[Rfam]
RNA sequence: AUAAUGAUACUUCCACCUCGUCUUAACACAUCGUAAAGAAGGUGGCUCGCUUUGAAAAGGGAGAGGUAACAAACCUAUGU
Number, nucleotide and partner (000 for none) at each position: 001a000002u000003a000004a000005u000006g000007a000008u000009a000010c000011u000012u077013c045014c044015a043016c042017c041018u040019c000020g000021u000022c000023u000024u000025a000026a000027c000028a000029c000030a000031u000032c000033g000034u000035a000036a000037a000038g000039a000040a018041g017042g016043u015044g014045g013046c063047u062048c061049g000050c059051u058052u057053u000054g000055a000056a000057a052058a051059g050060g000061g048062a047063g046064a076065g075066g074067u000068a000069a000070c000071a000072a000073a000074c066075c065076u064077a012078u000079g000080u000
The record is an 80-nucleotide sequence from Vallitalea pronyensis, which matches "pemK RNA" in Rfam. The match comes from Rfam's covariance-model search (50 bits). It is annotated as a cis-regulatory element. Taxonomically the source falls in Vallitalea (Bacteria, Bacillati, Bacillota, Clostridia).